The family of this 113-nucleotide sequence from Kroppenstedtia pulmonis is "SAM riboswitch aptamer (S box leader)". Rfam links the family to the GO term regulation of gene expression. A search with the family's covariance model found it, with a score of 90 bits. The source organism's lineage runs through Bacteria, Bacillati, Bacilli, Caryophanales and Kroppenstedtia. Pairs were carried over by alignment from the consensus structure, which is taken from published work.

RNA sequence: CUCUUAUCAAGAGUGGCGGAGGGACUGGCCCGAUGAAGCCCGGCAACCUACUGCACCCUUUAGGUGCAGGUGUGGUGCCAAUUCCUGCAGAGUUUUUCUCUGACAGAUGAGAG
Numbered sequence: 001c002u003c004u005u006a007u008c009a010a011g012a013g014u015g016g017c018g019g020a021g022g023g024a025c026u027g028g029c030c031c032g033a034u035g036a037a038g039c040c041c042g043g044c045a046a047c048c049u050a051c052u053g054c055a056c057c058c059u060u061u062a063g064g065u066g067c068a069g070g071u072g073u074g075g076u077g078c079c080a081a082u083u084c085c086u087g088c089a090g091a092g093u094u095u096u097u098c099u100c101u102g103a104c105a106g107a108u109g110a111g112a113g
Stems, first nucleotide, its partner, number of pairs: 001113008013041001015040003021031003025087001027085002042079004047075002049072004083105001088102005